[Rfam]
RNA sequence: CGUAAUAACAAAACAGAGUCAUGAGAACAUUCGUAGUAAAUACAUAUUGGUGGUGGCGCUCCGUACAACUCAAAAGGUCGUAAGGAACGAAGACUCGUAUGUAUAUAUAAACACUACAUAAAGAUAUAAAGAGGUCUGUC
Numbered sequence: 001c002g003u004a005a006u007a008a009c010a011a012a013a014c015a016g017a018g019u020c021a022u023g024a025g026a027a028c029a030u031u032c033g034u035a036g037u038a039a040a041u042a043c044a045u046a047u048u049g050g051u052g053g054u055g056g057c058g059c060u061c062c063g064u065a066c067a068a069c070u071c072a073a074a075a076g077g078u079c080g081u082a083a084g085g086a087a088c089g090a091a092g093a094c095u096c097g098u099a100u101g102u103a104u105a106u107a108u109a110a111a112c113a114c115u116a117c118a119u120a121a122a123g124a125u126a127u128a129a130a131g132a133g134g135u136c137u138g139u140c
Base pairs, nucleotide, nucleotide: 036108037107038106040104041103042102043101044100045099046098047097049095050094051093057089058088060086061085062084066080068078069077070076
RNA: Bacteroidete tryptophan peptide leader RNA